[Rfam]
RNA sequence: GCUGUUAUCGGGUGGAUCACGAUGCAAUUUUGAUUAGAGUAAUGGGAGAGAAAUUGCACGGUAUCCAUCUGUAAACCGCA
Numbered sequence: 001g002c003u004g005u006u007a008u009c010g011g012g013u014g015g016a017u018c019a020c021g022a023u024g025c026a027a028u029u030u031u032g033a034u035u036a037g038a039g040u041a042a043u044g045g046g047a048g049a050g051a052a053a054u055u056g057c058a059c060g061g062u063a064u065c066c067a068u069c070u071g072u073a074a075a076c077c078g079c080a
Stems, first nucleotide, its partner, number of pairs: 009071009019062002023058009
RNA: mir-363 microRNA precursor family